ZMP/ZTP riboswitch aptamer (pfl RNA motif): an 82-nucleotide sequence.
RNA sequence: AAAAAGAUCCGUGACUGACGGUUUUUGUGGGGCACCACCAGGGAGCGGAUUCUUAAAAAGGCCGACCGUCUGGGCAGCAUCU
Numbered sequence: 001a002a003a004a005a006g007a008u009c010c011g012u013g014a015c016u017g018a019c020g021g022u023u024u025u026u027g028u029g030g031g032g033c034a035c036c037a038c039c040a041g042g043g044a045g046c047g048g049a050u051u052c053u054u055a056a057a058a059a060g061g062c063c064g065a066c067c068g069u070c071u072g073g074g075c076a077g078c079a080u081c082u
Base pairs, nucleotide, nucleotide: 003054004053006051007050008049009048010047011046012045015042016041017070018069019068020067021066027038028037029036030035061075062074063073

Its family is annotated with regulation of purine nucleotide biosynthetic process and one-carbon metabolic process in the Gene Ontology.